[Rfam]
RNA: c-di-GMP-I riboswitch aptamer
Organism: Desulfosporosinus fructosivorans
RNA sequence: AAAUGAUAAAGGCAAACUCGGCGAAAGCUGAGGACGCAAAGCCACGAGUCUACAGCCUCAGCGGGGGCCAAGAUAGUCGGGUUGCUGUA
Numbered sequence: 001a002a003a004u005g006a007u008a009a010a011g012g013c014a015a016a017c018u019c020g021g022c023g024a025a026a027g028c029u030g031a032g033g034a035c036g037c038a039a040a041g042c043c044a045c046g047a048g049u050c051u052a053c054a055g056c057c058u059c060a061g062c063g064g065g066g067g068c069c070a071a072g073a074u075a076g077u078c079g080g081g082u083u084g085c086u087g088u089a
Base pairs, nucleotide, nucleotide: 012037013036017032018031019030020029021028022027040083041082042081043080045079046078047077048074049073050072055068056067057066058065